Shown here is a 222-nucleotide RNA from Cellulomonas sp. Leaf395, a member of the family "Actinobacteria sRNA Ms_IGR-5".
Nucleotides: 222
Base pairs, nucleotide, nucleotide: 013058014057015056016055017054018053059131060130061129062128064126065125067123150216151215152214153213154212155211156210157209158208159207160206163183164182165181166180167179168178
Number, partner (000 for none) and nucleotide at each position: 001000a002000c003000a004000c005000g006000g007000g008000a009000a010000g011000g012000a013058g014057g015056u016055g017054g018053u019000c020000c021000a022000g023000g024000a025000c026000a027000u028000g029000u030000u031000c032000u033000a034000u035000u036000c037000c038000a039000g040000g041000a042000c043000g044000c045000g046000u047000g048000a049000g050000g051000u052000g053018a054017c055016u056015g057014u058013c059131c060130g061129c062128u063000a064126g065125u066000c067123g068000c069000c070000g071000g072000a073000a074000a075000g076000c077000a078000c079000u080000c081000g082000g083000a084000c085000g086000g087000a088000u089000u090000g091000c092000a093000c094000a095000c096000a097000c098000g099000a100000u101000c102000c103000g104000c105000c106000c107000g108000c109000a110000g111000g112000c113000c114000c115000a116000c117000c118000c119000g120000g121000a122000c123067c124000g125065g126064c127000g128062a129061g130060c131059g132000a133000a134000u135000c136000c137000a138000u139000g140000g141000c142000a143000g144000u145000c146000a147000c148000c149000g150216c151215a152214g153213c154212c155211c156210g157209u158208g159207g160206g161000a162000g163183c164182c165181g166180c167179g168178a169000c170000c171000u172000c173000g174000u175000c176000c177000u178168u179167c180166g181165c182164g183163g184000c185000a186000g187000g188000g189000c190000c191000u192000c193000c194000u195000c196000g197000g198000a199000g200000g201000u202000c203000c204000g205000g206160c207159c208158c209157a210156c211155g212154g213153g214152c215151u216150g217000u218000u219000g220000c221000c222000u
A search with the family's covariance model found it, with a score of 67 bits.